Record summary: The record is a 364-nucleotide RNA from Alkalicella caledoniensis, which matches "Bacterial RNase P class A" in Rfam. Its family is annotated with ribonuclease P activity, dimeric ribonuclease P complex and tRNA processing in the Gene Ontology. It scores 316 bits against the family's covariance model. The base pairs follow the family's consensus structure, which is taken from published work. The organism belongs to Alkalicella, within Bacteria.
[Rfam]
RNA sequence: UGAGUAAAUGGGAUAGUCGCGGAUACAAGUACCGAAAGGUCGUAUCUGAGGAAAGUCCGAGCUCCAUAGGGCAGGGUGCUGGGUAAUACCCAGUGAGGGCAACCUCAAGGAAAGUGCCACAGAAAUAAACCGCCUAAUUUAUUAGGUAAGGAUGGAAAGGUGCGGUAAGAGCGCACCAGCAGUUAGGCGACUAACUGGCUAGGUAAACCCCAUCUGGAGCAAGACCAAGUAGGAGGGAAUAUAGGAGCUGCCCGCUCUCCCUCGGGUAAGGUCGCAUGAGGUGUUAGGUAACUAACAUCCUAGAUAGAUGACUAUCACUUUCUAUUGGAAAGUACAGAACUCGGCUUAUAAGUUUACUCAUAAU
Numbered sequence: 001u002g003a004g005u006a007a008a009u010g011g012g013a014u015a016g017u018c019g020c021g022g023a024u025a026c027a028a029g030u031a032c033c034g035a036a037a038g039g040u041c042g043u044a045u046c047u048g049a050g051g052a053a054a055g056u057c058c059g060a061g062c063u064c065c066a067u068a069g070g071g072c073a074g075g076g077u078g079c080u081g082g083g084u085a086a087u088a089c090c091c092a093g094u095g096a097g098g099g100c101a102a103c104c105u106c107a108a109g110g111a112a113a114g115u116g117c118c119a120c121a122g123a124a125a126u127a128a129a130c131c132g133c134c135u136a137a138u139u140u141a142u143u144a145g146g147u148a149a150g151g152a153u154g155g156a157a158a159g160g161u162g163c164g165g166u167a168a169g170a171g172c173g174c175a176c177c178a179g180c181a182g183u184u185a186g187g188c189g190a191c192u193a194a195c196u197g198g199c200u201a202g203g204u205a206a207a208c209c210c211c212a213u214c215u216g217g218a219g220c221a222a223g224a225c226c227a228a229g230u231a232g233g234a235g236g237g238a239a240u241a242u243a244g245g246a247g248c249u250g251c252c253c254g255c256u257c258u259c260c261c262u263c264g265g266g267u268a269a270g271g272u273c274g275c276a277u278g279a280g281g282u283g284u285u286a287g288g289u290a291a292c293u294a295a296c297a298u299c300c301u302a303g304a305u306a307g308a309u310g311a312c313u314a315u316c317a318c319u320u321u322c323u324a325u326u327g328g329a330a331a332g333u334a335c336a337g338a339a340c341u342c343g344g345c346u347u348a349u350a351a352g353u354u355u356a357c358u359c360a361u362a363a364u
Stems, first nucleotide, its partner, number of pairs: 001360009011349001012316007020048007028040001053347003057344005062219004069253004074215005079093005094108001095106004109210002114208002116204003130151002132147006159177006179199001180197007223273004233263006245257004280299008